[Rfam]
RNA sequence: ACAGGCACUUGACUUCCUUGUGGCGUCAUACAGAGAAGUCACAGGGCAGUACCUGAGGGUCUGU
Dot-bracket structure: ((((((.((......(((((((((((...))......))))))))).........)).))))))
A member of the RNA family "MAT2A 3'UTR stem loop B" from Dasypus novemcinctus, 64 nucleotides long. The organism belongs to Dasypus, within Eukaryota. It is one of the family's seed sequences. The family's RNA type in Rfam is cis-regulatory element. A reference for the family is Parker et al. (2011), "New families of human regulatory RNA structures identified by comparative analysis of vertebrate genomes", Genome Res. The base pairs follow the family's consensus structure, which is taken from published work.